[Rfam]
RNA sequence: AGCAAAAUGAUGAGCCAUCAUGACCUGAAACUAAUGUGGAUACUCCAUGGUCUUCAAAGUUCUCUGAUUGCU
Numbered sequence: 001a002g003c004a005a006a007a008u009g010a011u012g013a014g015c016c017a018u019c020a021u022g023a024c025c026u027g028a029a030a031c032u033a034a035u036g037u038g039g040a041u042a043c044u045c046c047a048u049g050g051u052c053u054u055c056a057a058a059g060u061u062c063u064c065u066g067a068u069u070g071c072u
Stems, first nucleotide, its partner, number of pairs: 001072005
The family of this 72-nucleotide RNA from Ananas comosus is "Small nucleolar RNA R160". The organism belongs to Ananas, within Eukaryota. A search with the family's covariance model found it, with a score of 71 bits. snoR160 is a C/D box small nucleolar RNA, which acts as a methylation guide for 25S ribosomal RNA in plants. snoR160 has been alternatively named snoZ270 in rice. Pairs were carried over by alignment from the consensus structure.